[Rfam]
RNA: ffh sRNA
RNA sequence: GCGUCCACGGAUGCACGCCGGCCAGCGAGUUUUCGCCCGCCGGCGUAAAACCG
Numbered sequence: 001g002c003g004u005c006c007a008c009g010g011a012u013g014c015a016c017g018c019c020g021g022c023c024a025g026c027g028a029g030u031u032u033u034c035g036c037c038c039g040c041c042g043g044c045g046u047a048a049a050a051c052c053g
Stems, first nucleotide, its partner, number of pairs: 016045007025036004